[Rfam]
RNA sequence: GCCGAGCUGGGUAGCGUCAGCUUGUGACCCAUGUGGGGGCAAUAAGGUGGUGUGGAUGUCAGGUGCGGUUCUUGUGCUUGGGCUUGGGGCCGCACUUUGCGGCCCGCCCGUUCCAAGUUGAGUAGUGGGUUGUGGGUGCUUUGGCGAAGGCCUUGGCGCCCCAGCACCUAGAGUGGCGGGCAAUGCGUGAGGCUGGCUUCACAGAGCAGCGAUUACCGCCCGCUUCCAACGGUGGAAGGAUAACGGGCCGCUGCACUCGAAGCCCGCUUAGGCUCAAGCAUCCUCUUUGGCAGACCACCAUCUUU
Numbered sequence: 001g002c003c004g005a006g007c008u009g010g011g012u013a014g015c016g017u018c019a020g021c022u023u024g025u026g027a028c029c030c031a032u033g034u035g036g037g038g039g040c041a042a043u044a045a046g047g048u049g050g051u052g053u054g055g056a057u058g059u060c061a062g063g064u065g066c067g068g069u070u071c072u073u074g075u076g077c078u079u080g081g082g083c084u085u086g087g088g089g090c091c092g093c094a095c096u097u098u099g100c101g102g103c104c105c106g107c108c109c110g111u112u113c114c115a116a117g118u119u120g121a122g123u124a125g126u127g128g129g130u131u132g133u134g135g136g137u138g139c140u141u142u143g144g145c146g147a148a149g150g151c152c153u154u155g156g157c158g159c160c161c162c163a164g165c166a167c168c169u170a171g172a173g174u175g176g177c178g179g180g181c182a183a184u185g186c187g188u189g190a191g192g193c194u195g196g197c198u199u200c201a202c203a204g205a206g207c208a209g210c211g212a213u214u215a216c217c218g219c220c221c222g223c224u225u226c227c228a229a230c231g232g233u234g235g236a237a238g239g240a241u242a243a244c245g246g247g248c249c250g251c252u253g254c255a256c257u258c259g260a261a262g263c264c265c266g267c268u269u270a271g272g273c274u275c276a277a278g279c280a281u282c283c284u285c286u287u288u289g290g291c292a293g294a295c296c297a298c299c300a301u302c303u304u305u
Stems, first nucleotide, its partner, number of pairs: 001040003004023007028037003044304009054295001057292002060289003063285001065283001067281001071278004076273004080265006087258001089256001093253002099251008108239002111237005117230004122226001124224003127167001129165004134161007143152003168173001175220005186211003193204003
Rfam assigns this 305-nucleotide RNA from Eragrostis curvula to the family "Plant signal recognition particle RNA". NCBI's taxonomy places the organism under Eukaryota, Tracheophyta, Liliopsida, commelinids, Eragrostis. Rfam links the family to the GO terms SRP-dependent cotranslational protein targeting to membrane, signal sequence recognition and signal recognition particle, endoplasmic reticulum targeting. The match comes from Rfam's covariance-model search (238 bits). The base pairs follow the family's consensus structure, which is taken from published work.